[Rfam]
RNA sequence: UGAGACCUCUUGAUGGCCGCGACCCCACCUUGGUGGGGUUGAGGAACUUCCGGGCUCCGCAGAGCACGAUGGCGGAUAACGUCCGCCCAGGGUGACCUGAGAGAUAGCGCAGCAGAGAAUAGACCGCCUGACCGGCUUUUGCCUGGUCAGGUAAGGGUGAAACGGCGGUGUAAGAGACCACCGGGCCGCUGGUAACAGUCGGCCGCAUGGCAAGCCUCAUCGGGAGCAAGGCCAAGCAGAAGGCACUAAGGGCUGCUCGCCCGAGCCUUCGGGUAGGCUGCUAGAGCCUGGCGGCAACGUCAGGUCGAGAUGGAUGGCCAUCCGUGUGGAAACACACGACAGAACCCGGGGUAGAAGAGGUCUCACCUC
Numbered sequence: 001u002g003a004g005a006c007c008u009c010u011u012g013a014u015g016g017c018c019g020c021g022a023c024c025c026c027a028c029c030u031u032g033g034u035g036g037g038g039u040u041g042a043g044g045a046a047c048u049u050c051c052g053g054g055c056u057c058c059g060c061a062g063a064g065c066a067c068g069a070u071g072g073c074g075g076a077u078a079a080c081g082u083c084c085g086c087c088c089a090g091g092g093u094g095a096c097c098u099g100a101g102a103g104a105u106a107g108c109g110c111a112g113c114a115g116a117g118a119a120u121a122g123a124c125c126g127c128c129u130g131a132c133c134g135g136c137u138u139u140u141g142c143c144u145g146g147u148c149a150g151g152u153a154a155g156g157g158u159g160a161a162a163c164g165g166c167g168g169u170g171u172a173a174g175a176g177a178c179c180a181c182c183g184g185g186c187c188g189c190u191g192g193u194a195a196c197a198g199u200c201g202g203c204c205g206c207a208u209g210g211c212a213a214g215c216c217u218c219a220u221c222g223g224g225a226g227c228a229a230g231g232c233c234a235a236g237c238a239g240a241a242g243g244c245a246c247u248a249a250g251g252g253c254u255g256c257u258c259g260c261c262c263g264a265g266c267c268u269u270c271g272g273g274u275a276g277g278c279u280g281c282u283a284g285a286g287c288c289u290g291g292c293g294g295c296a297a298c299g300u301c302a303g304g305u306c307g308a309g310a311u312g313g314a315u316g317g318c319c320a321u322c323c324g325u326g327u328g329g330a331a332a333c334a335c336a337c338g339a340c341a342g343a344a345c346c347c348g349g350g351g352u353a354g355a356a357g358a359g360g361u362c363u364c365a366c367c368u369c
Base pairs, nucleotide, nucleotide: 001365002364003363004362005361006360007359008358009357010356011354012322013321014320015319016318017317018316020041021040022039023038024037025036026035027034028033046352047351048350050349051348052347053346054345055226056225057224058223062258063257064256065255067222068221069220070219071218072086073085074084075083076082087101088099089098090097091096102217103216107215108214109211110210124156125155126152127151128150129149130148131147132146133145134144164182165181167179168178169177183206184204185203186202187201188200189198190197191196230279231278232277233276239270240269241268242267243266244265250262251261252260253259286305287304288303289302290301291300292299293298

This 369-nucleotide RNA sequence from Bifidobacterium aemilianum belongs to the Rfam family "Bacterial RNase P class A". By type it is a ribozyme. The family's consensus secondary structure is taken from published work. Lineage of the source: Bacteria > Bacillati > Actinomycetota > Actinomycetes > Bifidobacterium.